[Rfam]
RNA sequence: AGGACAGGCCUUUCAGGCAUCCUCUCCUAAACCUUUUCAAGGCCGGCCCCUCGGGGCUGGCCCUUUUUUUGUCCGCC
Numbered sequence: 001a002g003g004a005c006a007g008g009c010c011u012u013u014c015a016g017g018c019a020u021c022c023u024c025u026c027c028u029a030a031a032c033c034u035u036u037u038c039a040a041g042g043c044c045g046g047c048c049c050c051u052c053g054g055g056g057c058u059g060g061c062c063c064u065u066u067u068u069u070u071g072u073c074c075g076c077c
Stems, first nucleotide, its partner, number of pairs: 008018004041062009
Dot-bracket structure: .......((((...))))......................(((((((((....)))))))))...............